[Rfam]
RNA sequence: AGCUGGUGGUGAUGACUUGUACAAGGAUGGUAUCUGAACAAGGUGGCUCUCGAAUGGCUGGUCCUUGCAUGAUUACAUCCAAAAUUGAGACUGAACAUCUGAGCAAACU
Numbered sequence: 001a002g003c004u005g006g007u008g009g010u011g012a013u014g015a016c017u018u019g020u021a022c023a024a025g026g027a028u029g030g031u032a033u034c035u036g037a038a039c040a041a042g043g044u045g046g047c048u049c050u051c052g053a054a055u056g057g058c059u060g061g062u063c064c065u066u067g068c069a070u071g072a073u074u075a076c077a078u079c080c081a082a083a084a085u086u087g088a089g090a091c092u093g094a095a096c097a098u099c100u101g102a103g104c105a106a107a108c109u
Base pairs, nucleotide, nucleotide: 001109002108004106006104007103039067040066041065042064043063
Background:
The family of this 109-nucleotide RNA sequence from Miscanthus lutarioriparius is "Small nucleolar RNA Z118/Z121/Z120". A reference for the family is Chen et al. (2003), "The high diversity of snoRNAs in plants: identification and comparative study of 120 snoRNA genes from Oryza sativa", Nucleic Acids Res. The family's consensus secondary structure was predicted with PFOLD. Rfam links the family to the GO terms nucleolus and RNA processing. It is annotated as a C/D-box small nucleolar RNA.